[Rfam]
A member of the RNA family "Ribosomal protein L10 leader" from Dethiobacter sp., 142 nucleotides long.
RNA sequence: GCGUAAAUUUCAUAUUGACUGCAGACAGCCGGUGCCCGUUGGGGCGUAAGACUUGUGUCACCUGCCGAGGUCGGAGUUCAUCAGAGCCUUUUGGUGAUUGAUGGUAUCCGUAUCUCAUGCGGAUACCUUUAUUUUUUACCCU
Dot-bracket structure: ...........................((.((((((......)))..............))).)).....................................((((((((((.....))))))))))...............

For this family Rfam cites "Ribosomal protein L10(L12)4 autoregulates expression of the Bacillus subtilis rplJL operon by a transcription attenuation mechanism" (Yakhnin et al., Nucleic Acids Res, 2015).
NCBI's taxonomy places the organism under Bacteria, Bacillati, Dethiobacteria, Dethiobacteraceae, Dethiobacter.
From the family's description: This family is a putative r-protein leader autoregulatory structure found in B. subtilis and other low-GC Gram-positive bacteria.
Pairs were carried over by alignment from the consensus structure, which was predicted with CMfinder.